The family of this 299-nucleotide sequence from Leptobrachium leishanense is "Metazoan signal recognition particle RNA". About the family: The signal recognition particle (SRP) is a universally conserved ribonucleoprotein. It is involved in the co-translational targeting of proteins to membranes. The eukaryotic SRP consists of a 300-nucleotide 7S RNA and six proteins: SRPs 72, 68, 54, 19, 14, and 9. Archaeal SRP consists of a 7S RNA and homologues of the eukaryotic SRP19 and SRP54 proteins. Eukaryotic and archaeal 7S RNAs have very similar secondary structures, as represented by this family. Eight helical elements fold into the Alu and S domains, separated by a long linker region. The Alu domain is thought to mediate the peptide chain elongation retardation function of the SRP. The universally conserved helix which interacts with the SRP54 M domain mediates signal sequence recognition. In eukaryotes and archaea, the SRP19-helix 6 complex is thought to be involved in SRP assembly and stabilises helix 8 for SRP54 binding. The Signal Recognition Particle Database (SRPDB) provides compilations of SRP components, with phylogenetic data and structural illustrations. Many sequences below the threshold for this family are clearly closely related, but are most likely to be SRP RNA derived pseudogenes. The human genome in particular is known to contain a large amount of SRP RNA related sequence, including Alu repeats. While the threshold of this family is set high so as to minimise the number of hits to such regions, it is likely that some remain. Clan: SRP clan. Taxonomically the source falls in Leptobrachium (Eukaryota, Metazoa, Tetrapoda, Amphibia). It scores 266 bits against the family's covariance model. Rfam classes the family as a non-coding RNA gene.

[Rfam]
RNA sequence: GCCGGGUGCAGUGGCGUGCGCCUGUAAUCCUGCUGCUGGGAGGCUGAGGCUGGCGGAUCGCUUGAGUCCAGGAGUUCUGAUCUGCCCUGCGCUAUGUCGAUCGGGUGUCCGCACUAAGUUCGGUAUCAAUAUGGCGGGGCCGUGGGAGCUCGGCUUCACCAGGUUGCUCUAAGGAGGGGUGAACCGGCCCAGGUCGGAGACGGAGCAGGUCAAAACCCCCGUGCCGAUCAGUAGUGGGCCCGCGCCCGUGAAUAGCCGGGGCAGGGCAGCCUGGCCAACACAGCGAGACUCUGCCUUUU
Numbered sequence: 001g002c003c004g005g006g007u008g009c010a011g012u013g014g015c016g017u018g019c020g021c022c023u024g025u026a027a028u029c030c031u032g033c034u035g036c037u038g039g040g041a042g043g044c045u046g047a048g049g050c051u052g053g054c055g056g057a058u059c060g061c062u063u064g065a066g067u068c069c070a071g072g073a074g075u076u077c078u079g080a081u082c083u084g085c086c087c088u089g090c091g092c093u094a095u096g097u098c099g100a101u102c103g104g105g106u107g108u109c110c111g112c113a114c115u116a117a118g119u120u121c122g123g124u125a126u127c128a129a130u131a132u133g134g135c136g137g138g139g140c141c142g143u144g145g146g147a148g149c150u151c152g153g154c155u156u157c158a159c160c161a162g163g164u165u166g167c168u169c170u171a172a173g174g175a176g177g178g179g180u181g182a183a184c185c186g187g188c189c190c191a192g193g194u195c196g197g198a199g200a201c202g203g204a205g206c207a208g209g210u211c212a213a214a215a216c217c218c219c220c221g222u223g224c225c226g227a228u229c230a231g232u233a234g235u236g237g238g239c240c241c242g243c244g245c246c247c248g249u250g251a252a253u254a255g256c257c258g259g260g261g262c263a264g265g266g267c268a269g270c271c272u273g274g275c276c277a278a279c280a281c282a283g284c285g286a287g288a289c290u291c292u293g294c295c296u297u298u299u
Base pairs, nucleotide, nucleotide: 001044002043003042004023005022006021007020008019009018010017028041029040030039046297047296048295049294050293052291053290058286059285060284061283062282066276068274069273070272071271072270077269078268079267081265082264083263084262085261086260087259088258089257091256092255093254094253095252097250102248103247104246105245106244107243108242109238110237112236113235114234115233116232118229120227121226122225123224124223125222126221127166128165129164130163132161133160134159136157137156138155139154140153141152142151144149168174169173176219177218178217179216180215186211187210188209189208194203195202196201